Nucleotides: 196
Base pairs, nucleotide, nucleotide: 020052021051022050023049024048026047027046028045034042035041084179085178086177087176088175090173092171093170094169095168
Number, partner (000 for none) and nucleotide at each position: 001000a002000u003000c004000u005000u006000u007000g008000c009000u010000c011000g012000g013000c014000g015000g016000u017000a018000a019000u020052a021051u022050c023049g024048u025000a026047a027046c028045c029000a030000a031000u032000g033000a034042g035041g036000u037000u038000u039000g040000u041035c042034c043000c044000a045028g046027g047026u048024g049023u050022g051021a052020u053000u054000a055000u056000u057000g058000c059000u060000a061000g062000u063000u064000g065000a066000a067000a068000a069000c070000u071000u072000u073000g074000a075000c076000c077000a078000a079000u080000a081000c082000c083000u084179a085178c086177c087176u088175a089000c090173u091000u092171a093170c094169c095168a096000c097000u098000c099000g100000u101000c102000g103000c104000u105000a106000c107000a108000g109000c110000c111000c112000u113000g114000c115000g116000u117000g118000a119000g120000c121000u122000u123000g124000g125000c126000c127000u128000c129000c130000u131000c132000u133000a134000c135000a136000a137000c138000u139000a140000g141000u142000c143000u144000g145000c146000a147000u148000u149000g150000c151000u152000c153000u154000c155000a156000c157000u158000u159000a160000u161000c162000c163000g164000a165000g166000g167000c168095u169094g170093g171092u172000u173090a174000u175088u176087a177086g178085g179084u180000u181000u182000c183000u184000g185000a186000a187000c188000a189000a190000a191000a192000u193000u194000g195000u196000u
The record is a 196-nucleotide sequence from Cryptotermes secundus, which matches "U4 spliceosomal RNA" in Rfam. U4 small nuclear RNA (U4 snRNA) is a component of the major U2-dependent spliceosome. The source organism's lineage runs through Eukaryota, Ecdysozoa, Pterygota, Cryptotermitinae and Cryptotermes. Gene Ontology terms of the family: U4 snRNP and spliceosomal tri-snRNP complex assembly.